[Rfam]
RNA: Purine riboswitch aptamer
Nucleotides: 102
Base pairs, nucleotide, nucleotide: 018088019087021085022084023083024082025081030048031047032046033045034044035043058078059077060076061075062074063073064072
Number, partner (000 for none) and nucleotide at each position: 001000u002000a003000u004000a005000u006000u007000a008000a009000a010000a011000a012000a013000c014000u015000a016000u017000u018088a019087c020000g021085u022084c023083g024082u025081a026000u027000a028000a029000u030048u031047u032046c033045g034044g035043g036000a037000a038000u039000a040000a041000g042000g043035c044034c045033c046032g047031a048030g049000c050000g051000u052000u053000u054000c055000u056000a057000c058078c059077a060076a061075g062074c063073u064072a065000c066000c067000g068000u069000a070000a071000a072064u073063g074062g075061c076060u077059u078058g079000a080000c081025u082024a083023c084022g085021a086000g087019g088018u089000g090000a091000u092000u093000g094000a095000u096000g097000g098000g099000u100000g101000c102000c